[Rfam]
RNA sequence: UAAUGUCUUCAGGGCAGGGUGAAAUUCCCGAUCGGCGGUGACAGUCCGCGGGCGCGAAAGCGCGGGGUCCGGUGAAAUUCCGGAACCGACGGUAUAGUCCGGAUUAAAGAAGGUGUAU
Numbered sequence: 001u002a003a004u005g006u007c008u009u010c011a012g013g014g015c016a017g018g019g020u021g022a023a024a025u026u027c028c029c030g031a032u033c034g035g036c037g038g039u040g041a042c043a044g045u046c047c048g049c050g051g052g053c054g055c056g057a058a059a060g061c062g063c064g065g066g067g068u069c070c071g072g073u074g075a076a077a078u079u080c081c082g083g084a085a086c087c088g089a090c091g092g093u094a095u096a097g098u099c100c101g102g103a104u105u106a107a108a109g110a111a112g113g114u115g116u117a118u
Base pairs, nucleotide, nucleotide: 003116004115005114006113007112008111009110010109017029018028019027031098032097033088034087035049036048037047038046044086045085068084069083070082071081072080090101091100092099
RNA: FMN riboswitch aptamer (RFN element)
Organism: bacterium 1xD42-87